RNA sequence: ACGUCAGCGCGAUUUUCUGACGUGGAAGCAAAUUGCGUCUAUGUAAGCGCAAUUUGUGUCCACGUCAACAAAGCGCGCUGACGUGG
Numbered sequence: 001a002c003g004u005c006a007g008c009g010c011g012a013u014u015u016u017c018u019g020a021c022g023u024g025g026a027a028g029c030a031a032a033u034u035g036c037g038u039c040u041a042u043g044u045a046a047g048c049g050c051a052a053u054u055u056g057u058g059u060c061c062a063c064g065u066c067a068a069c070a071a072a073g074c075g076c077g078c079u080g081a082c083g084u085g086g
Base pairs, nucleotide, nucleotide: 001084002083003082004081005080006079007078008077009076010075011074013072014071015070018067019066020065022063023062024061025060026059028057029056030055031054032053033052034051035050036049037048040045

Annotation
The family of this 86-nucleotide sequence from Gossypium gossypioides is "MIR7486 microRNA precursor family". Its family is annotated with RISC complex and miRNA-mediated post-transcriptional gene silencing in the Gene Ontology. Rfam 15.1 lists 10,132 matches to the family in 36 species. Pairs were carried over by alignment from the consensus structure, which was predicted with RNAalifold.